[Rfam]
Rfam assigns this 176-nucleotide RNA sequence from Planomicrobium sp. CPCC 101110 to the family "glmS glucosamine-6-phosphate activated ribozyme aptamer". The organism belongs to Planomicrobium, within Bacteria. The match comes from Rfam's covariance-model search (124 bits). Its family is annotated with regulation of gene expression and catalytic activity in the Gene Ontology. Rfam describes the family as follows. This entry contains a glucosamine-6-phosphate activated ribozyme that is found in the mRNA for GlmS. GlmS is an enzyme that uses fructose-6-phosphate and glutamine to generate glucosamine-6-phosphate. The ribozyme catalyses self cleavage of the glmS mRNA that is thought to regulate GlmS activity.
RNA sequence: AAAACAGUUGAAGCGCCAGUACUAGGGAAAUCGGAUGGACAAAUCAGUCCCUAGUAGACGAGGAGGAGGAGUAUCGAGAUUUCGGCGGAUACCUCCCGGCCGUGAAGCCCGGUCGUUAUAUCCAUCUUUAAAACAGUUGAGCGAUCAGCUGGACAAACGGAUGGAUGGGCUCAUCA
Numbered sequence: 001a002a003a004a005c006a007g008u009u010g011a012a013g014c015g016c017c018a019g020u021a022c023u024a025g026g027g028a029a030a031u032c033g034g035a036u037g038g039a040c041a042a043a044u045c046a047g048u049c050c051c052u053a054g055u056a057g058a059c060g061a062g063g064a065g066g067a068g069g070a071g072u073a074u075c076g077a078g079a080u081u082u083c084g085g086c087g088g089a090u091a092c093c094u095c096c097c098g099g100c101c102g103u104g105a106a107g108c109c110c111g112g113u114c115g116u117u118a119u120a121u122c123c124a125u126c127u128u129u130a131a132a133a134c135a136g137u138u139g140a141g142c143g144a145u146c147a148g149c150u151g152g153a154c155a156a157a158c159g160g161a162u163g164g165a166u167g168g169g170c171u172c173a174u175c176a
Base pairs, nucleotide, nucleotide: 020056021055022054023053024052025051026050027049065096066095067094068093069092074085075084076083077082097115098114099113100112101111102110120166121165122164123163124162125161126160134151135150136149137148138147139146140145